[Rfam]
RNA: S4-Bacteroidia ribosomal protein leader
RNA sequence: GAUUGCACAUUAUCCCUCUCUGCAGUCGCGGCUG
Numbered sequence: 001g002a003u004u005g006c007a008c009a010u011u012a013u014c015c016c017u018c019u020c021u022g023c024a025g026u027c028g029c030g031g032c033u034g
Stems, first nucleotide, its partner, number of pairs: 001027007
Dot-bracket structure: (((((((.............))))))).......